Shown here is a 101-nucleotide sequence from Fontibacillus panacisegetis, a member of the family "Purine riboswitch aptamer". The family's consensus secondary structure is taken from published work.
[Rfam]
RNA sequence: AUAUAUUUAUAUAUCUUUUCUCGUAUAUGUGCAGGAAUGGGCCUGCAUGUCUCUACCUGAUCACCGGAAAUGAUCGGACUACGAGGAGAAUCUAUAUCUGU
Numbered sequence: 001a002u003a004u005a006u007u008u009a010u011a012u013a014u015c016u017u018u019u020c021u022c023g024u025a026u027a028u029g030u031g032c033a034g035g036a037a038u039g040g041g042c043c044u045g046c047a048u049g050u051c052u053c054u055a056c057c058u059g060a061u062c063a064c065c066g067g068a069a070a071u072g073a074u075c076g077g078a079c080u081a082c083g084a085g086g087a088g089a090a091u092c093u094a095u096a097u098c099u100g101u
Base pairs, nucleotide, nucleotide: 018087019086020085021084022083023082024081025080029048030047031046032045033044034043035042057077058076059075060074061073062072063071